Shown here is a 148-nucleotide RNA sequence from Dibothriocephalus latus, a member of the family "U12 minor spliceosomal RNA". A search with the family's covariance model found it, with a score of 84 bits. The organism belongs to Dibothriocephalus, within Eukaryota. Rfam 15.1 lists 2,106 matches to the family in 1,170 species. The family is grouped with related families in Rfam's "U2 clan".
RNA sequence: AUGCCUUAAACUAAUGAGUAAGGAAAAAUAACAUUCCGAUGGAAUAGUCGGUUUGCUGGACUAUUUCCAGGUUAAUGUUUGGAGGGUAAAGGCCUUCUCAGCUGGGCUCCCUACUUCCGGAGCUGAGCUCGAUGAUAGUGGCCUGCCC
Numbered sequence: 001a002u003g004c005c006u007u008a009a010a011c012u013a014a015u016g017a018g019u020a021a022g023g024a025a026a027a028a029u030a031a032c033a034u035u036c037c038g039a040u041g042g043a044a045u046a047g048u049c050g051g052u053u054u055g056c057u058g059g060a061c062u063a064u065u066u067c068c069a070g071g072u073u074a075a076u077g078u079u080u081g082g083a084g085g086g087u088a089a090a091g092g093c094c095u096u097c098u099c100a101g102c103u104g105g106g107c108u109c110c111c112u113a114c115u116u117c118c119g120g121a122g123c124u125g126a127g128c129u130c131g132a133u134g135a136u137a138g139u140g141g142c143c144u145g146c147c148c
Base pairs, nucleotide, nucleotide: 004023005022006021007020008019032055033054036051037050038049039048056070057069058068059067060066084148085147086146087145088144091143092142093141094140098132099131100129101128102127103126106123107122108121109120110119